[Rfam]
RNA sequence: GGUCAAUGAUGUAACACUGGCAUGUAUUAUCUGAGUCCAAAGCUGAAGAUUUAGCUCUUUAGCUCUAGAAUUACACUGAGACCUA
Numbered sequence: 001g002g003u004c005a006a007u008g009a010u011g012u013a014a015c016a017c018u019g020g021c022a023u024g025u026a027u028u029a030u031c032u033g034a035g036u037c038c039a040a041a042g043c044u045g046a047a048g049a050u051u052u053a054g055c056u057c058u059u060u061a062g063c064u065c066u067a068g069a070a071u072u073a074c075a076c077u078g079a080g081a082c083c084u085a
Stems, first nucleotide, its partner, number of pairs: 001083004
RNA: Small nucleolar RNA SNORD45